Rfam assigns this 60-nucleotide RNA sequence from Variovorax sp. MHTC-1 to the family "Betaproteobacteria toxic small RNA".
[Rfam]
RNA sequence: UGUCUCCUCCACCCCUCUUGGUGGAUUUACUCCCGGGGCGCGAGCCCCGGGAGCUUUCUC
Numbered sequence: 001u002g003u004c005u006c007c008u009c010c011a012c013c014c015c016u017c018u019u020g021g022u023g024g025a026u027u028u029a030c031u032c033c034c035g036g037g038g039c040g041c042g043a044g045c046c047c048c049g050g051g052a053g054c055u056u057u058c059u060c
Stems, first nucleotide, its partner, number of pairs: 008025006030053008

Rfam describes the family as follows. Overexpression in amino aid rich medium attenuates growth, suggesting role in repressing amino acid intake and metabolism. On this family, see Sass et al., Sci Rep 2017: "Identification of small RNAs abundant in Burkholderia cenocepacia biofilms reveal putative regulators with a potential role in carbon and iron metabolism". The base pairs follow the family's consensus structure, which was predicted with WAR.